RNA sequence: AGCUUCAUGCAGUGACAGCAUGGUAGCCAGUGAGGCUUAUCUGAGGCACUGAUGAUUGCUAAUUGAAAACUUUUCCAAUACCCCACCAUGACGACUUGAAAUAUAGUUGUCAUUACCAUUUCUUUUUAGAUGUUAUAACAU
Numbered sequence: 001a002g003c004u005u006c007a008u009g010c011a012g013u014g015a016c017a018g019c020a021u022g023g024u025a026g027c028c029a030g031u032g033a034g035g036c037u038u039a040u041c042u043g044a045g046g047c048a049c050u051g052a053u054g055a056u057u058g059c060u061a062a063u064u065g066a067a068a069a070c071u072u073u074u075c076c077a078a079u080a081c082c083c084c085a086c087c088a089u090g091a092c093g094a095c096u097u098g099a100a101a102u103a104u105a106g107u108u109g110u111c112a113u114u115a116c117c118a119u120u121u122c123u124u125u126u127u128a129g130a131u132g133u134u135a136u137a138a139c140a141u
Base pairs, nucleotide, nucleotide: 020053021052022050023049024048026047027046028045034042035041088113089112090111091110092109093108094107095106096105130141131140132139133138

The record is a 141-nucleotide RNA sequence from Otolemur garnettii, which matches "U4 spliceosomal RNA" in Rfam. Taxonomically the source falls in Otolemur (Eukaryota, Opisthokonta, Teleostomi, Tetrapoda).